[Rfam]
RNA: Plastid-rpl16 group II-D1 intron
RNA sequence: AAGAGUCUCAAGCUAAUAAAUACUGAGAGGAUUGACUCAAGAACAAA
Dot-bracket structure: ......((..((.((((.............)))).))..))......